[Rfam]
RNA: mir-130 microRNA precursor family
RNA sequence: AAUGGCACCCUAUUCCCUAUAUAGUGCACUACUAUAUGGGCCCUAAUCAAAAGUAGUGCACUAUAUAGGGAAUAGGGUGCCAUUU
Numbered sequence: 001a002a003u004g005g006c007a008c009c010c011u012a013u014u015c016c017c018u019a020u021a022u023a024g025u026g027c028a029c030u031a032c033u034a035u036a037u038g039g040g041c042c043c044u045a046a047u048c049a050a051a052a053g054u055a056g057u058g059c060a061c062u063a064u065a066u067a068g069g070g071a072a073u074a075g076g077g078u079g080c081c082a083u084u085u
Stems, first nucleotide, its partner, number of pairs: 001085002005080006012073008022063009